[Rfam]
The record is a 113-nucleotide RNA from Priestia koreensis, which matches "BsrF" in Rfam. A search with the family's covariance model found it, with a score of 93 bits.
RNA sequence: GCGAUGAGCUAAUUCGUGUAAGACGGACGAUAUUCCUUCGGGAUAAACGUGUGAAUGUGGUCACACGGUCUCCGCCUCGAACGCAUCAAAGACGUCUGUCACGUACAGGCGUC
Dot-bracket structure: .............(((.(.....((((.(((..((......))....((.(((........))).))))))))).).)))..........(((((((((.....)))))))))
The literature on the family includes a 2008 paper in Gene by Saito et al., "Novel small RNA-encoding genes in the intergenic regions of Bacillus subtilis".
Rfam classes the family as a small RNA.
The family's consensus secondary structure was predicted with WAR.